[Rfam]
RNA: DUF3800-XI RNA
RNA sequence: GGGGCUGACCGAAAGGUCCGGGUCCUACCACGGCGGGGAAGUUACCC
Dot-bracket structure: ((((((((((....))))..)))))).....................